Rfam assigns this 103-nucleotide RNA sequence from Plutella xylostella to the family "mir-8517 microRNA precursor family". A search with the family's covariance model found it, with a score of 82 bits. The base pairs follow the family's consensus structure, which was predicted with RNAalifold.
RNA sequence: UUGUAGGACGUUUUAGCUAUUGAAUUGUUUUACCCUGUCAAAGAACAAAUUGUUCUGCCACAGAGAGGGACAAAACAGUUCAAUAGCUAAAACGUCCUGUAAC
Numbered sequence: 001u002u003g004u005a006g007g008a009c010g011u012u013u014u015a016g017c018u019a020u021u022g023a024a025u026u027g028u029u030u031u032a033c034c035c036u037g038u039c040a041a042a043g044a045a046c047a048a049a050u051u052g053u054u055c056u057g058c059c060a061c062a063g064a065g066a067g068g069g070a071c072a073a074a075a076c077a078g079u080u081c082a083a084u085a086g087c088u089a090a091a092a093c094g095u096c097c098u099g100u101a102a103c
Stems, first nucleotide, its partner, number of pairs: 001102006011092018029064003044054004